[Rfam]
RNA sequence: AAAUUCAUACUGGUACCGCCGCAGACAGCAGGCGUCCUUUGGGACAUAAUGGCAUCAAGCCGCCAGCCGAGGCCAUAAAGGGUUGCACCUGAAAGCUUAUUUGCUUACGGGCCUCUGGCAUGCUGUCUAAAACUUGCCGGGGGCUUUUUGAUUUCAGGA
Numbered sequence: 001a002a003a004u005u006c007a008u009a010c011u012g013g014u015a016c017c018g019c020c021g022c023a024g025a026c027a028g029c030a031g032g033c034g035u036c037c038u039u040u041g042g043g044a045c046a047u048a049a050u051g052g053c054a055u056c057a058a059g060c061c062g063c064c065a066g067c068c069g070a071g072g073c074c075a076u077a078a079a080g081g082g083u084u085g086c087a088c089c090u091g092a093a094a095g096c097u098u099a100u101u102u103g104c105u106u107a108c109g110g111g112c113c114u115c116u117g118g119c120a121u122g123c124u125g126u127c128u129a130a131a132a133c134u135u136g137c138c139g140g141g142g143g144c145u146u147u148u149u150g151a152u153u154u155c156a157g158g159a
Stems, first nucleotide, its partner, number of pairs: 028067002031064003034045003111144010
RNA: Ribosomal protein L10 leader